[Rfam]
Shown here is an 80-nucleotide RNA from Alligator mississippiensis, a member of the family "Mammalian CPEB3 ribozyme". The family's consensus secondary structure is taken from published work. Taxonomically the source falls in Alligator (Eukaryota, Bilateria, Gnathostomata, Dipnotetrapodomorpha).
RNA sequence: AGAGGUCACAAGUUUGAGGACCUAGUUGAAGUGCUCACAGCACAGCCCUGUCAGAUUCCAAUGAAUGUGUGAAUUCUGCU
Number, nucleotide and partner (000 for none) at each position: 001a000002g000003a000004g000005g000006u000007c000008a000009c000010a000011a000012g000013u000014u000015u000016g048017a000018g047019g046020a000021c000022c000023u000024a080025g079026u078027u000028g076029a075030a074031g043032u042033g041034c000035u000036c000037a000038c000039a000040g000041c033042a032043c031044a000045g000046c019047c018048c016049u000050g000051u000052c069053a068054g000055a066056u065057u064058c063059c000060a000061a000062u000063g058064a057065a056066u055067g000068u053069g052070u000071g000072a000073a000074u030075u029076c028077u000078g026079c025080u024